[Rfam]
RNA sequence: GAUACCGGACGACCGGUAUUCCUGAUCCGAUCAAUGGGGACGGCCCCG
Dot-bracket structure: ((((((((....))))))))..............(((((....)))))
RNA: Guanidine-II riboswitch aptamer (mini-ykkC)
Organism: Thalassospira sp. HJ